This 124-nucleotide RNA from Ricinus communis belongs to the Rfam family "MIR390 microRNA precursor family". Gene Ontology terms of the family: RISC complex and miRNA-mediated post-transcriptional gene silencing. Taxonomically the source falls in Ricinus (Eukaryota, Streptophyta, Streptophytina, rosids). Pairs were carried over by alignment from the consensus structure, which was predicted with WAR.

[Rfam]
RNA sequence: AUGGAGACUCUGUUAAGCUCAGGAGGGAUAGCGCCGUGAAGAUCAUUGAUAUAUUAUUGUCCAAACAAAACAUAUGUAUAGUCUUUAGUGGCGCUAUCCAUCCUGAGUUUCACAGGUUCUUCUU
Numbered sequence: 001a002u003g004g005a006g007a008c009u010c011u012g013u014u015a016a017g018c019u020c021a022g023g024a025g026g027g028a029u030a031g032c033g034c035c036g037u038g039a040a041g042a043u044c045a046u047u048g049a050u051a052u053a054u055u056a057u058u059g060u061c062c063a064a065a066c067a068a069a070a071c072a073u074a075u076g077u078a079u080a081g082u083c084u085u086u087a088g089u090g091g092c093g094c095u096a097u098c099c100a101u102c103c104u105g106a107g108u109u110u111c112a113c114a115g116g117u118u119c120u121u122c123u124u
Stems, first nucleotide, its partner, number of pairs: 010115001016109009026099010